This 559-nucleotide part of an RNA from Apis florea belongs to the Rfam family "Eukaryotic large subunit ribosomal RNA". Gene Ontology terms of the family: structural constituent of ribosome and ribosome. The source organism's lineage runs through Eukaryota, Metazoa, Altocrustacea, Endopterygota and Apis. Pairs were carried over by alignment from the consensus structure, which is taken from published work. Rfam's curators put it in the seed alignment.
[Rfam]
RNA sequence: UAGAUUAAUGUAGGUAAGGGAAGUCGGCAAAUUGGAUCCGUAACUUCGGAAUAAGGAUUGGCUCUGAGGAGCGGGGCGUGUCGGGCUUGGUCGGGAAGCGGGUUUGGCUGACGUGCCGGGCCUGGGCGAGCUGAACGGGGCGUGGUCUUGUACCUCGCACCCCGGAUCCGAGCUCGGUCCGUGCCUUGGCCUCCCGCGGAUCUUCCUUGCUGCGAGGCUUCCGUGGCGGCUCUGCCGUCGUGGUCGCUCUCUUCGGCCGCCAUUCAACGCUCAGCUCAGAACUGGCACGGACUAGGGGAAUCCGACUGUCUAAUUAAAACAAAGCAUUGCGAUGGCCCCCGAGGGUGUUGACGCAAUGUGAUUUCUGCCCAGUGCUCUGAAUGUCAACGUGAAGAAAUUCAAAAAAGCGCGGGUAAACGGCGGGAGUAACUAUGACUCUCUUAAGGUAGCCAAAUGCCUCGUCAUCUAAUUAGUGACGCGCAUGAAUGGAUUAACGAGAUUCCCUCUGUCCCUAUCUACUUUCUAGCGAAACCACUGCCAAGGGAACGGGCUUGGAAAA
Numbered sequence: 001u002a003g004a005u006u007a008a009u010g011u012a013g014g015u016a017a018g019g020g021a022a023g024u025c026g027g028c029a030a031a032u033u034g035g036a037u038c039c040g041u042a043a044c045u046u047c048g049g050a051a052u053a054a055g056g057a058u059u060g061g062c063u064c065u066g067a068g069g070a071g072c073g074g075g076g077c078g079u080g081u082c083g084g085g086c087u088u089g090g091u092c093g094g095g096a097a098g099c100g101g102g103u104u105u106g107g108c109u110g111a112c113g114u115g116c117c118g119g120g121c122c123u124g125g126g127c128g129a130g131c132u133g134a135a136c137g138g139g140g141c142g143u144g145g146u147c148u149u150g151u152a153c154c155u156c157g158c159a160c161c162c163c164g165g166a167u168c169c170g171a172g173c174u175c176g177g178u179c180c181g182u183g184c185c186u187u188g189g190c191c192u193c194c195c196g197c198g199g200a201u202c203u204u205c206c207u208u209g210c211u212g213c214g215a216g217g218c219u220u221c222c223g224u225g226g227c228g229g230c231u232c233u234g235c236c237g238u239c240g241u242g243g244u245c246g247c248u249c250u251c252u253u254c255g256g257c258c259g260c261c262a263u264u265c266a267a268c269g270c271u272c273a274g275c276u277c278a279g280a281a282c283u284g285g286c287a288c289g290g291a292c293u294a295g296g297g298g299a300a301u302c303c304g305a306c307u308g309u310c311u312a313a314u315u316a317a318a319a320c321a322a323a324g325c326a327u328u329g330c331g332a333u334g335g336c337c338c339c340c341g342a343g344g345g346u347g348u349u350g351a352c353g354c355a356a357u358g359u360g361a362u363u364u365c366u367g368c369c370c371a372g373u374g375c376u377c378u379g380a381a382u383g384u385c386a387a388c389g390u391g392a393a394g395a396a397a398u399u400c401a402a403a404a405a406a407g408c409g410c411g412g413g414u415a416a417a418c419g420g421c422g423g424g425a426g427u428a429a430c431u432a433u434g435a436c437u438c439u440c441u442u443a444a445g446g447u448a449g450c451c452a453a454a455u456g457c458c459u460c461g462u463c464a465u466c467u468a469a470u471u472a473g474u475g476a477c478g479c480g481c482a483u484g485a486a487u488g489g490a491u492u493a494a495c496g497a498g499a500u501u502c503c504c505u506c507u508g509u510c511c512c513u514a515u516c517u518a519c520u521u522u523c524u525a526g527c528g529a530a531a532c533c534a535c536u537g538c539c540a541a542g543g544g545a546a547c548g549g550g551c552u553u554g555g556a557a558a559a
Base pairs, nucleotide, nucleotide: 001525002524003523004522010519011518012517013516014515015514016513018511019510020509035059036058037057038056039055044049060283061282063280064279065278066277067276068275069272070271071270072269073268075261076260077259078258080257081256082255083254084253085210086209089206090205098197099196100195101194106191107190108189109188110187111186112181113180115178116177117176118175119174120173121172123170124169125168284288296504297503298502299501300500301499302498303496304495307321308320309319324359325358326357327356328355329354330353331352335346336345337344338343363490364489365488367421368420369419372418373417374414375413376412377411379410382409383408384407390401391400392399393398422440423439424438425437426436427435441445461477462476463475464474465473538555539554540553541552542551